RNA sequence: UUCUUAUCAAGAGAAGCCGAGGGUACUGGCCCUGUGACGCUUCAGCAACCAGCCGGACGGUCAGGUGCUAAAUCCAGCAGACUCACGCAGUCUGGAAGAUGAGAA
Numbered sequence: 001u002u003c004u005u006a007u008c009a010a011g012a013g014a015a016g017c018c019g020a021g022g023g024u025a026c027u028g029g030c031c032c033u034g035u036g037a038c039g040c041u042u043c044a045g046c047a048a049c050c051a052g053c054c055g056g057a058c059g060g061u062c063a064g065g066u067g068c069u070a071a072a073u074c075c076a077g078c079a080g081a082c083u084c085a086c087g088c089a090g091u092c093u094g095g096a097a098g099a100u101g102a103g104a105a
Stems, first nucleotide, its partner, number of pairs: 001105008013043005021032003026077004044069004049065002051061001053059001073097001078094006
A member of the RNA family "SAM riboswitch aptamer (S box leader)" from Domibacillus iocasae, 105 nucleotides long.
Rfam describes the family as follows. The SAM riboswitch is found upstream of a number of genes which code for proteins involved in methionine or cysteine biosynthesis in Gram-positive bacteria.